Glycine riboswitch aptamer: a 110-nucleotide sequence from Nocardioides dongxiaopingii. A search with the family's covariance model found it, with a score of 62 bits.

RNA sequence: CGAUCCCGCGCGGGAGAGACUUCGUCCCGCGGCCGAGGCUGGUCAUGGGCAAGCGCCGAAGGGGCAAUUCCUCCCCGGAACCUCUCAGGCACCCGGACCGCGCGGAGCAG
Numbered sequence: 001c002g003a004u005c006c007c008g009c010g011c012g013g014g015a016g017a018g019a020c021u022u023c024g025u026c027c028c029g030c031g032g033c034c035g036a037g038g039c040u041g042g043u044c045a046u047g048g049g050c051a052a053g054c055g056c057c058g059a060a061g062g063g064g065c066a067a068u069u070c071c072u073c074c075c076c077g078g079a080a081c082c083u084c085u086c087a088g089g090c091a092c093c094c095g096g097a098c099c100g101c102g103c104g105g106a107g108c109a110g
Stems, first nucleotide, its partner, number of pairs: 006105008020053003055090003058086002062084003068078002